RNA sequence: AGUCUAGGUAGAUAAGAGGAAAGUCCAUGCUUGCAUUAUCUGAGAUGAUAAUAGUGUCUGUGUAAGUAUAUAAGAAAUAAAACUUAAAGGCUAAUUAAAUUAGUCUAUGGCAGAAUCAAGCUCUAAAAGGAGGAUUGUACACUCAAUUUUCUUCAUGAGUAAGAUUCUCUAAGGUGCCACAGAGACGAGAUUUAUAGAAAUAUAAAUGAUGAAACGCGGUAAACCCCACAAGCAAGAAACCUAAAUUUUGGUCAGGGAAUUGCAGAUAUAGGAAAAUGAACCUCACCUGCGAAGUUCAAGUCUAUAUCUAUAAAAGUAUAUGGUCUUGAAUUAGAUUAAUUAUCCGUUUAUACAGAACAUGGCUUAUAG
Numbered sequence: 001a002g003u004c005u006a007g008g009u010a011g012a013u014a015a016g017a018g019g020a021a022a023g024u025c026c027a028u029g030c031u032u033g034c035a036u037u038a039u040c041u042g043a044g045a046u047g048a049u050a051a052u053a054g055u056g057u058c059u060g061u062g063u064a065a066g067u068a069u070a071u072a073a074g075a076a077a078u079a080a081a082a083c084u085u086a087a088a089g090g091c092u093a094a095u096u097a098a099a100u101u102a103g104u105c106u107a108u109g110g111c112a113g114a115a116u117c118a119a120g121c122u123c124u125a126a127a128a129g130g131a132g133g134a135u136u137g138u139a140c141a142c143u144c145a146a147u148u149u150u151c152u153u154c155a156u157g158a159g160u161a162a163g164a165u166u167c168u169c170u171a172a173g174g175u176g177c178c179a180c181a182g183a184g185a186c187g188a189g190a191u192u193u194a195u196a197g198a199a200a201u202a203u204a205a206a207u208g209a210u211g212a213a214a215c216g217c218g219g220u221a222a223a224c225c226c227c228a229c230a231a232g233c234a235a236g237a238a239a240c241c242u243a244a245a246u247u248u249u250g251g252u253c254a255g256g257g258a259a260u261u262g263c264a265g266a267u268a269u270a271g272g273a274a275a276a277u278g279a280a281c282c283u284c285a286c287c288u289g290c291g292a293a294g295u296u297c298a299a300g301u302c303u304a305u306a307u308c309u310a311u312a313a314a315a316g317u318a319u320a321u322g323g324u325c326u327u328g329a330a331u332u333a334g335a336u337u338a339a340u341u342a343u344c345c346g347u348u349u350a351u352a353c354a355g356a357a358c359a360u361g362g363c364u365u366a367u368a369g
Stems, first nucleotide, its partner, number of pairs: 002013003021365003025362005030236005035052006059230004063086005087108001088106006109226002112168004120160004128153010174224002176220003190207007240256003260292006293332008
Dot-bracket structure: .(((......))).......(((.((((((((((((((((......))))))......(((((((((..............)))))(((((((.......)))))).)((.((((....((((....((((((((((......))))))))))...))))....)))).....(((((...........(((((((....)))))))..........)))..)))))))).)))))...(((...........)))...((((((.....................))))))((((((((........................)))))))).........................))))))))....